[Rfam]
Rfam assigns this 97-nucleotide sequence from Salipaludibacillus keqinensis to the family "c-di-GMP-I riboswitch aptamer". Lineage of the source: Bacteria > Bacillati > Caryophanales > Bacillaceae > Salipaludibacillus. Pairs were carried over by alignment from the consensus structure, which is taken from published work.

RNA sequence: CAUUAGAAAAGGCAAACCUAUUGAAAGAUAGGGACGCAAAGCUAUGGAUCUAAGGGAAUACAAAUAAAACAUAUCCUAUGAUUGCAUAGUUGCCUCA
Numbered sequence: 001c002a003u004u005a006g007a008a009a010a011g012g013c014a015a016a017c018c019u020a021u022u023g024a025a026a027g028a029u030a031g032g033g034a035c036g037c038a039a040a041g042c043u044a045u046g047g048a049u050c051u052a053a054g055g056g057a058a059u060a061c062a063a064a065u066a067a068a069a070c071a072u073a074u075c076c077u078a079u080g081a082u083u084g085c086a087u088a089g090u091u092g093c094c095u096c097a
Stems, first nucleotide, its partner, number of pairs: 012037002017032006040091004047085001048082003055076003